Rfam assigns this 125-nucleotide RNA from Anolis carolinensis to the family "Small nucleolar RNA SNORA40". Rfam 15.1 lists 2,550 matches to the family in 517 species. Lineage of the source: Eukaryota > Eumetazoa > Teleostomi > Bifurcata > Anolis. From the family's description: The snoRNA ACA 40 belongs to the H/ACA family of snoRNAs and guides the pseudouridylation of 28S rRNA subunit at position U4565.
[Rfam]
RNA sequence: AGCACAGCUUCAGGUUUUGGCUAGUCCUGUCAGCAGAAAACCAUGAAGCGAGUGCUAAGAGCAUAUUCUUCUUUGCAACCCAUGGCUGAUUCGUAUUAGCUGUGUUACUUACAGGAAGGAACAUA
Numbered sequence: 001a002g003c004a005c006a007g008c009u010u011c012a013g014g015u016u017u018u019g020g021c022u023a024g025u026c027c028u029g030u031c032a033g034c035a036g037a038a039a040a041c042c043a044u045g046a047a048g049c050g051a052g053u054g055c056u057a058a059g060a061g062c063a064u065a066u067u068c069u070u071c072u073u074u075g076c077a078a079c080c081c082a083u084g085g086c087u088g089a090u091u092c093g094u095a096u097u098a099g100c101u102g103u104g105u106u107a108c109u110u111a112c113a114g115g116a117a118g119g120a121a122c123a124u125a
Stems, first nucleotide, its partner, number of pairs: 001056005007049003011045001015039004020034002066121004072115004081104010